[Rfam]
RNA sequence: CCCAAGCCCAGGCUCUUUCCACUGAGCCACGCUGCACCAAACAACCGAGAAGACAUGCAGAUGAUUAUUAACUACAGCGCGGCUCAGUGGAAAGAGCAUGGGCUUGGGA
Number, nucleotide and partner (000 for none) at each position: 001c000002c108003c107004a000005a104006g103007c102008c101009c100010a099011g000012g097013c096014u095015c094016u093017u092018u091019c090020c089021a088022c087023u086024g085025a084026g083027c082028c081029a000030c000031g000032c000033u000034g000035c000036a000037c000038c000039a000040a000041a000042c000043a000044a000045c000046c000047g000048a000049g000050a000051a000052g000053a000054c000055a000056u000057g000058c000059a000060g000061a000062u000063g000064a000065u000066u000067a000068u000069u000070a000071a000072c000073u000074a000075c000076a000077g000078c000079g000080c000081g028082g027083c026084u025085c024086a023087g022088u021089g020090g019091a018092a017093a016094g015095a014096g013097c012098a000099u010100g009101g008102g007103c006104u005105u000106g000107g003108g002109a000
mir-130 microRNA precursor family: a 109-nucleotide sequence from Ornithorhynchus anatinus. The literature on the family includes a 2002 paper in Curr Biol by Lagos-Quintana et al., "Identification of tissue-specific microRNAs from mouse". Pairs were carried over by alignment from the consensus structure, which was predicted with PFOLD.